[Rfam]
Annotation:
Burkholderia RNA 11: a 122-nucleotide RNA from Massilia sp. WF1. Rfam's curators write: Co-purified with Hfq, expression confirmed by Northern blot. Predicted target marZ. Overlaps coding sequence. A reference for the family is Ramos et al. (2013), "Experimental identification of small non-coding regulatory RNAs in the opportunistic human pathogen Burkholderia cenocepacia J2315", Genomics. Rfam classes the family as a small RNA. The organism belongs to Massilia, within Bacteria. The base pairs follow the family's consensus structure, which was predicted with RNAfold.
Nucleotides: 122
Base pairs, nucleotide, nucleotide: 011048012047017042018041019040022037023036025034026033051121052120055117057115058114059113060112062110064104067099068098071095072094074092075091076090077089078088080087081086
Number, partner (000 for none) and nucleotide at each position: 001000g002000c003000a004000a005000c006000c007000u008000g009000g010000c011048g012047u013000u014000c015000u016000c017042g018041c019040g020000c021000a022037a023036g024000a025034a026033c027000c028000g029000c030000a031000c032000g033026g034025u035000g036023u037022u038000c039000c040019u041018g042017u043000c044000c045000a046000u047012g048011c049000u050000c051121g052120g053000c054000a055117a056000u057115u058114c059113c060112u061000g062110g063000u064104u065000c066000u067099g068098g069000u070000u071095c072094u073000a074092c075091g076090g077089c078088g079000c080087g081086c082000u083000g084000g085000u086081g087080c088078u089077g090076u091075c092074g093000c094072a095071g096000u097000u098068u099067c100000c101000g102000c103000u104064g105000u106000a107000c108000g109000c110062c111000a112060a113059g114058g115057a116000u117055u118000a119000c120052c121051u122000g